[Rfam]
RNA sequence: CAGGAGAAGGCCGAAAAUCCUAAGAAGAGUAGGCA
Dot-bracket structure: .((((....[[[.....))))..........]]].
Rfam assigns this 35-nucleotide sequence to the family "DUF805b RNA".
The base pairs follow the family's consensus structure, which is taken from published work.
The family's RNA type in Rfam is cis-regulatory element.